[Rfam]
About this RNA: This 76-nucleotide sequence from Alligator mississippiensis belongs to the Rfam family "Mammalian CPEB3 ribozyme". Pairs were carried over by alignment from the consensus structure, which is taken from published work. Rfam describes the family as follows. The mammalian CPEB3 ribozyme is a self cleaving RNA located in the second intron of the CPEB3 gene which belongs to a family of genes regulating messenger RNA polyadenylation. This ribozyme is highly conserved and found only in mammals. The CPEB3 ribozyme is structurally and biochemically related to the human hepatitis delta virus (HDV) ribozyme and the HDV ribozyme is proposed to have arisen from the human transcriptome. There is currently only one other known self cleaving ribozyme in mammals, the CoTC motif.
RNA sequence: GGUGCACUGACAAAGCCACAGCAGAAGCACUGAUGGCGUGGCCUUGUCAGAUUCCAGUGAAUCUGUGAAUGUUGCA
Number, nucleotide and partner (000 for none) at each position: 001g000002g000003u000004g000005c000006a000007c000008u000009g000010a044011c000012a000013a000014a000015g042016c041017c040018a000019c000020a000021g075022c074023a073024g072025a000026a070027g039028c038029a000030c000031u000032g000033a000034u000035g000036g000037c000038g028039u027040g017041g016042c015043c000044u010045u000046g000047u000048c065049a064050g063051a062052u061053u060054c059055c000056a000057g000058u000059g054060a053061a052062u051063c050064u049065g048066u000067g000068a000069a000070u026071g000072u024073u023074g022075c021076a000